Shown here is a 345-nucleotide RNA from Metarhizium majus, a member of the family "Group I catalytic intron". Rfam's curators write: Group I catalytic introns are large self-splicing ribozymes. The organism belongs to Metarhizium majus, within Eukaryota.
RNA sequence: ACUAAGAGCUAUGUCCCUGUGCUGUGGUCCCUCGGGGGGAGCACGGGGGCGACACCCUCAAACUGACGGGGAACCCCUAAAGCCAUCCGCUCCGGCCUCCGCUUAGGAAACUCUGCGAGAGGCACCAGGUUAACGGCCUGGGUAUCGGAACAAAUUCGCGGUGGAUGUUACAAUGGGCAAUCCGCAGCCAAGCCCCUAAGUGCACUGCAAUUGCAGCGCAUACGGGGAAGGUUCAGAGACUUGACGGGGGUGGGUGGGUGCGCACUUCCGCUGAACGGCGGGCGUGUUCUUCAAAGCGUUAUGCCCGCUUAAGAUAAAGUCCCGGAGGGGCGCUGAAAGGUGCUC
Numbered sequence: 001a002c003u004a005a006g007a008g009c010u011a012u013g014u015c016c017c018u019g020u021g022c023u024g025u026g027g028u029c030c031c032u033c034g035g036g037g038g039g040a041g042c043a044c045g046g047g048g049g050c051g052a053c054a055c056c057c058u059c060a061a062a063c064u065g066a067c068g069g070g071g072a073a074c075c076c077c078u079a080a081a082g083c084c085a086u087c088c089g090c091u092c093c094g095g096c097c098u099c100c101g102c103u104u105a106g107g108a109a110a111c112u113c114u115g116c117g118a119g120a121g122g123c124a125c126c127a128g129g130u131u132a133a134c135g136g137c138c139u140g141g142g143u144a145u146c147g148g149a150a151c152a153a154a155u156u157c158g159c160g161g162u163g164g165a166u167g168u169u170a171c172a173a174u175g176g177g178c179a180a181u182c183c184g185c186a187g188c189c190a191a192g193c194c195c196c197u198a199a200g201u202g203c204a205c206u207g208c209a210a211u212u213g214c215a216g217c218g219c220a221u222a223c224g225g226g227g228a229a230g231g232u233u234c235a236g237a238g239a240c241u242u243g244a245c246g247g248g249g250g251u252g253g254g255u256g257g258g259u260g261c262g263c264a265c266u267u268c269c270g271c272u273g274a275a276c277g278g279c280g281g282g283c284g285u286g287u288u289c290u291u292c293a294a295a296g297c298g299u300u301a302u303g304c305c306c307g308c309u310u311a312a313g314a315u316a317a318a319g320u321c322c323c324g325g326a327g328g329g330g331c332g333c334u335g336a337a338a339g340g341u342g343c344u345c
Base pairs, nucleotide, nucleotide: 053252054251055250056249057248059246064186065185067184068183069182070181075177076176077175187232188231193226194225195224201220202219203218205216206215207214208213236322238321239320240319241318242317254308255307256306257305258304259303260302262300330343331342332341333340334339